[Rfam]
RNA: MIR2593 microRNA precursor family
Organism: Trifolium medium
RNA sequence: UUAUAAGCAAAAUUGCACUUUUUAGAUUCAUUGAAUAAUUGAUGUAUCUAGACUAUAAUACAGACCAUAUACAUUUAUUAUUCAAUGAAUCUAAAAAGUGCACUUUUGCUUAUAU
Numbered sequence: 001u002u003a004u005a006a007g008c009a010a011a012a013u014u015g016c017a018c019u020u021u022u023u024a025g026a027u028u029c030a031u032u033g034a035a036u037a038a039u040u041g042a043u044g045u046a047u048c049u050a051g052a053c054u055a056u057a058a059u060a061c062a063g064a065c066c067a068u069a070u071a072c073a074u075u076u077a078u079u080a081u082u083c084a085a086u087g088a089a090u091c092u093a094a095a096a097a098g099u100g101c102a103c104u105u106u107u108g109c110u111u112a113u114a115u
Stems, first nucleotide, its partner, number of pairs: 002114006009107004015101011027089013041075004049067001051065001